[Rfam]
RNA sequence: CGAGUCGGCUGGGUGAUCGCGGCGGGAAACCGUCGAGGAAAGUCCGGACUCCACAGAGCAGGGUGGUGGGUAACGCCCACCCGGGGCGACCCGCGGGACAGUGCCACAGAAAUCAGACCGCCCCCAUGGGGUAAGGGUGAAACGGCGAGGUAAGAGCUCACCGCGUUCCUGGCGACAGGGACGGCACGGCAAACCCCACCCGGAGCAAGACCAAGAAGGGCUUCGGCCCGCGGAGGCCGUUCGAGCGUUGCUCGCGCGAGGUCUCCGGGUAGGUUGCACGGCACGGUCGGAAGGUCGUGUCGGAGGCGGCUGGCAACAGCCGUCACAGAUGGAUGAUCACCUCUCGCGAGAGAUCAGAAUCCGGCUUACGGCCGGCUCGUCCC
Dot-bracket structure: ((((((((((((((((((.((((((....))))))....[[[.[[[[[((((...[[.[.((((((((((.....)))))(((((....)))).)((...(((((............(((((((...)))))..)).......((.(((.......))).))(((((((((....)))))))).)..)))..)))))))))))))...((((......(.(.(..........................................((.((.].]])).))..).).).....))))........((((((((....))))))))..........)))))))..................]]]]]]]].)))))))))))....

A member of the RNA family "Bacterial RNase P class A" from Propioniciclava sinopodophylli, 383 nucleotides long. From the family's description: Ribonuclease P (RNase P) is a ubiquitous endoribonuclease, found in archaea, bacteria and eukarya as well as chloroplasts and mitochondria. Its best characterised activity is the generation of mature 5'-ends of tRNAs by cleaving the 5'-leader elements of precursor-tRNAs. Cellular RNase Ps are ribonucleoproteins. RNA from bacterial RNase Ps retains its catalytic activity in the absence of the protein subunit, i.e. it is a ribozyme.